[Rfam]
RNA: MIR2275 microRNA precursor family
RNA sequence: GCACUGAAAGUGAGAGUUGGAGGAAAUCAAACCUAUGGAUCAUCCUGUAAUGGGUCGAUGAUAAAACAUGAUCACCGAUUGGUUUGUUUUCCUCCAAUAUCUCACCUUCAGUCG
Number, nucleotide and partner (000 for none) at each position: 001g000002c000003a000004c111005u110006g109007a108008a107009a000010g000011u104012g103013a102014g101015a000016g098017u097018u096019g095020g094021a093022g000023g091024a090025a089026a088027u000028c086029a085030a084031a000032c082033c081034u000035a000036u000037g000038g000039a000040u000041c000042a000043u000044c000045c000046u000047g000048u000049a000050a000051u000052g000053g000054g000055u000056c000057g000058a000059u000060g000061a000062u000063a000064a000065a000066a000067c000068a000069u000070g000071a000072u000073c000074a000075c000076c000077g000078a000079u000080u000081g033082g032083u000084u030085u029086g028087u000088u026089u025090u024091c023092c000093u021094c020095c019096a018097a017098u016099a000100u000101c014102u013103c012104a011105c000106c000107u008108u007109c006110a005111g004112u000113c000114g000